[Rfam]
RNA: PreQ1 (pre queuosine) riboswitch aptamer
Organism: Orenia metallireducens
RNA sequence: GAAGAAGCAGUUCGAAAAAUCCUGCUAUAAAAAACUAAGGAGUG
Numbered sequence: 001g002a003a004g005a006a007g008c009a010g011u012u013c014g015a016a017a018a019a020u021c022c023u024g025c026u027a028u029a030a031a032a033a034a035c036u037a038a039g040g041a042g043u044g
Stems, first nucleotide, its partner, number of pairs: 006026005016036001